[Rfam]
RNA: Small nucleolar RNA snoR99
RNA sequence: UAGCUUGAGGGAUGAACAAGUCCCUCAGAUUGAAGAUCUCAUCCAUCCGUCACUUUGUCAGCCAUUUUCAUUUAGUAUUUUGCUGGCCAUAUAGGAUGGAAAAUAU
Numbered sequence: 001u002a003g004c005u006u007g008a009g010g011g012a013u014g015a016a017c018a019a020g021u022c023c024c025u026c027a028g029a030u031u032g033a034a035g036a037u038c039u040c041a042u043c044c045a046u047c048c049g050u051c052a053c054u055u056u057g058u059c060a061g062c063c064a065u066u067u068u069c070a071u072u073u074a075g076u077a078u079u080u081u082g083c084u085g086g087c088c089a090u091a092u093a094g095g096a097u098g099g100a101a102a103a104u105a106u
Stems, first nucleotide, its partner, number of pairs: 042100006057087006064080001